[Rfam]
RNA: c-di-GMP-I riboswitch aptamer
RNA sequence: UAGAAUAUUUGGCAAACCUAUUUAAAGAUAGGGACGCAAAGUCUGGAGUCUAAAGCCGCCGCCGGGCGGUCAUGACCGUUCGACUGCAAGG
Numbered sequence: 001u002a003g004a005a006u007a008u009u010u011g012g013c014a015a016a017c018c019u020a021u022u023u024a025a026a027g028a029u030a031g032g033g034a035c036g037c038a039a040a041g042u043c044u045g046g047a048g049u050c051u052a053a054a055g056c057c058g059c060c061g062c063c064g065g066g067c068g069g070u071c072a073u074g075a076c077c078g079u080u081c082g083a084c085u086g087c088a089a090g091g
Stems, first nucleotide, its partner, number of pairs: 012037002017032006040085004045081003048076003055070006